RNA: Plant signal recognition particle RNA
RNA sequence: GCCGAGCUUGGUAACUAAAGCUUGUAACCUGAAUGGGGGCACUAGGGUGAUGGAACAUGGGUUCGUUUCAUUGAGCUGGAUCCAUCGUGGUCCGCAACUGACAUGCCCAUGCCAAGCCGGGAGUUGGGCCGAGGGAAUUGAGCGAAAGCUCUGGUUCUCGCGGUUCUUAAAGUGGAGAGUUCUGCGUGAGGCUGGUUUCACAGAGCAGCGAUCAUCUCCCGCUCUUGGCAGUGGAAGGAUAACAAGUCGGUUCCACAUGGAUCCAUCAUGGCUGGCUCAGUGAGUUGACCUGUGAUUGAACCAUCACUUUU
Numbered sequence: 001g002c003c004g005a006g007c008u009u010g011g012u013a014a015c016u017a018a019a020g021c022u023u024g025u026a027a028c029c030u031g032a033a034u035g036g037g038g039g040c041a042c043u044a045g046g047g048u049g050a051u052g053g054a055a056c057a058u059g060g061g062u063u064c065g066u067u068u069c070a071u072u073g074a075g076c077u078g079g080a081u082c083c084a085u086c087g088u089g090g091u092c093c094g095c096a097a098c099u100g101a102c103a104u105g106c107c108c109a110u111g112c113c114a115a116g117c118c119g120g121g122a123g124u125u126g127g128g129c130c131g132a133g134g135g136a137a138u139u140g141a142g143c144g145a146a147a148g149c150u151c152u153g154g155u156u157c158u159c160g161c162g163g164u165u166c167u168u169a170a171a172g173u174g175g176a177g178a179g180u181u182c183u184g185c186g187u188g189a190g191g192c193u194g195g196u197u198u199c200a201c202a203g204a205g206c207a208g209c210g211a212u213c214a215u216c217u218c219c220c221g222c223u224c225u226u227g228g229c230a231g232u233g234g235a236a237g238g239a240u241a242a243c244a245a246g247u248c249g250g251u252u253c254c255a256c257a258u259g260g261a262u263c264c265a266u267c268a269u270g271g272c273u274g275g276c277u278c279a280g281u282g283a284g285u286u287g288a289c290c291u292g293u294g295a296u297u298g299a300a301c302c303a304u305c306a307c308u309u310u311u
Base pairs, nucleotide, nucleotide: 001040002039003038004023005022006021007020008019009018011016028037029036030035044310045309046308047307048306049305050304051303052302053301056298057297058295060293061289062288063287065285066284068283069282070281071280072279073278074277075276076275077274078264079263080262081261082260083259084258085257087256088255089254090253098250099249100248101247102246104244105243107238108237110236112234113233114232116229117228118227119226120225121224122223123222124221126166127165128164129163130162131161133159134158135157136156137155138154139153140152141150142149143148167172174219175218176217177216178215185210186209187208192203193202194201